A member of the RNA family "c-di-AMP riboswitch aptamer (ydaO/yuaA leader)" from Pseudonocardia sp., 130 nucleotides long. This family represents a conserved RNA structure found upstream of the ydaO and yuaA genes in Bacillus subtilis and related genes in other bacteria. The ydaO/yuaA element is thought to act as a genetic 'off' switch for the ydaO and yuaA genes in its native state. The organism belongs to Pseudonocardia, within Bacteria.
RNA sequence: CGGCGGUCACCGCCGAAUCGCCGCAGGGCGAACCGGGGACCCGAGCACCCGGGGUGAAUCCGCGCGAGCGGUAGGGCUUCUUCCGCCCGAACCCGUCAGCUAACUCGGUAGGCGGUCGACGGAAGGCUGU
Numbered sequence: 001c002g003g004c005g006g007u008c009a010c011c012g013c014c015g016a017a018u019c020g021c022c023g024c025a026g027g028g029c030g031a032a033c034c035g036g037g038g039a040c041c042c043g044a045g046c047a048c049c050c051g052g053g054g055u056g057a058a059u060c061c062g063c064g065c066g067a068g069c070g071g072u073a074g075g076g077c078u079u080c081u082u083c084c085g086c087c088c089g090a091a092c093c094c095g096u097c098a099g100c101u102a103a104c105u106c107g108g109u110a111g112g113c114g115g116u117c118g119a120c121g122g123a124a125g126g127c128u129g130u
Base pairs, nucleotide, nucleotide: 011114012113013112014111018031019030020029032109033108034107035106036105037104042051043050052094053093054092060071061070062069063068074088075087076086077085